[Rfam]
RNA sequence: CUUCACGGAGCCCAGCCACAGCGGCUCGGCGCCGUCGCGGCCCUGGCCGUAGGUGGCGAGGAGGGCCUGGGCCUC
Dot-bracket structure: .............((((.....)))).....((....(....((..(((....)))..))....)...)).....
RNA: ASpks TB sRNA
Organism: Streptomyces sp. Ag109_G2-6